[Rfam]
RNA: Rhodo-rpoB RNA
RNA sequence: UGGUCGGGAGGCGCCCUAUGGGACGGGCACCAGGAAUAGACCGAACAGACCCGUUCUCAGAUGGGCGUGCCGCCGAGGCCCAACGGUGGUGCG
Numbered sequence: 001u002g003g004u005c006g007g008g009a010g011g012c013g014c015c016c017u018a019u020g021g022g023a024c025g026g027g028c029a030c031c032a033g034g035a036a037u038a039g040a041c042c043g044a045a046c047a048g049a050c051c052c053g054u055u056c057u058c059a060g061a062u063g064g065g066c067g068u069g070c071c072g073c074c075g076a077g078g079c080c081c082a083a084c085g086g087u088g089g090u091g092c093g
Stems, first nucleotide, its partner, number of pairs: 001043005010031002013028004066093010